[Rfam]
RNA: TPP riboswitch aptamer (THI element)
Organism: Piscinibacter sp. HJYY11
RNA sequence: AGCACUCGCUAGGGGUGUUGGAUGCCAUGCAGAUGGCGUUCGACUGAGAGAGUCCCUUUGAACCUGAUUGAGGUAAUCCUCGCGCAGGGAAGCAAGCACCGCAGACG
Number, nucleotide and partner (000 for none) at each position: 001a000002g000003c000004a000005c000006u095007c000008g093009c092010u091011a057012g056013g055014g054015g000016u051017g044018u043019u042020g041021g040022a039023u038024g037025c036026c035027a034028u000029g000030c000031a000032g000033a000034u027035g026036g025037c024038g023039u022040u021041c020042g019043a018044c017045u000046g000047a000048g000049a000050g000051a016052g000053u000054c014055c013056c012057u011058u000059u000060g000061a000062a000063c088064c087065u086066g085067a000068u000069u082070g081071a080072g079073g000074u000075a000076a000077u000078c000079c072080u071081c070082g069083c000084g000085c066086a065087g064088g063089g000090a000091a010092g009093c008094a000095a006096g000097c000098a000099c000100c000101g000102c000103a000104g000105a000106c000107g000